[Rfam]
About this RNA: The family of this 70-nucleotide RNA from Chitinasiproducens palmae is "Fluoride riboswitch aptamer (crcB RNA motif)".
RNA sequence: GUUGAAAGAGGAGAUGGCGUUCCUCCUUCAACCGCAGCCUUUACCGGCUGCUGAUGACGCCUACAGACAC
Numbered sequence: 001g002u003u004g005a006a007a008g009a010g011g012a013g014a015u016g017g018c019g020u021u022c023c024u025c026c027u028u029c030a031a032c033c034g035c036a037g038c039c040u041u042u043a044c045c046g047g048c049u050g051c052u053g054a055u056g057a058c059g060c061c062u063a064c065a066g067a068c069a070c
Base pairs, nucleotide, nucleotide: 010026011025012024013023016061017060018059019058020057021056034051035050036049037048038047039046
Notes:
Lineage of the source: Bacteria > Pseudomonadati > Betaproteobacteria > Burkholderiaceae > Chitinasiproducens. Rfam links the family to the GO terms positive regulation of gene expression and response to fluoride.